[Rfam]
RNA sequence: UAAUUGCUGUGAUGAAUCAUGAAACUAUUCACAUGUCAGACUUCAGAGAUCUUCAAAAGAUCUAUGAGAUAACGUUCAUGUUUCUCUGAGCAGAAA
Numbered sequence: 001u002a003a004u005u006g007c008u009g010u011g012a013u014g015a016a017u018c019a020u021g022a023a024a025c026u027a028u029u030c031a032c033a034u035g036u037c038a039g040a041c042u043u044c045a046g047a048g049a050u051c052u053u054c055a056a057a058a059g060a061u062c063u064a065u066g067a068g069a070u071a072a073c074g075u076u077c078a079u080g081u082u083u084c085u086c087u088g089a090g091c092a093g094a095a096a
Stems, first nucleotide, its partner, number of pairs: 001096001004093004048062004
RNA: Small nucleolar RNA R64/Z200 family
Organism: Morella rubra